[Rfam]
RNA sequence: CACUCCUGUUUCUGCCCCAUAGUUUUGCGUUCCAUAAGCUACUGGGUUCUGGUGAUGGAGGAUAUCAAGCUGUUUUGUUCCGGCCUCGUUUUGAUACUUCGUGGCCGGGAAGAAAUGGAUCGUGGGCACUAUAAAGUUUGAGUUUGGCGAUGGCCACCGAGCCUGCUGAACAUAGACGGUACCCUACAAGU
Numbered sequence: 001c002a003c004u005c006c007u008g009u010u011u012c013u014g015c016c017c018c019a020u021a022g023u024u025u026u027g028c029g030u031u032c033c034a035u036a037a038g039c040u041a042c043u044g045g046g047u048u049c050u051g052g053u054g055a056u057g058g059a060g061g062a063u064a065u066c067a068a069g070c071u072g073u074u075u076u077g078u079u080c081c082g083g084c085c086u087c088g089u090u091u092u093g094a095u096a097c098u099u100c101g102u103g104g105c106c107g108g109g110a111a112g113a114a115a116u117g118g119a120u121c122g123u124g125g126g127c128a129c130u131a132u133a134a135a136g137u138u139u140g141a142g143u144u145u146g147g148c149g150a151u152g153g154c155c156a157c158c159g160a161g162c163c164u165g166c167u168g169a170a171c172a173u174a175g176a177c178g179g180u181a182c183c184c185u186a187c188a189a190g191u
Stems, first nucleotide, its partner, number of pairs: 003060004016046004020041006070118007078110008087101001124184003128180003132176001142171005152163003
Dot-bracket structure: ..((((.........((((((((((..........)))))).))))..........)))).........(((((((.((((((((.(.............).)))))))).))))))).....(((.(((.(.........(((((.....(((......)))...)))))....).))).))).......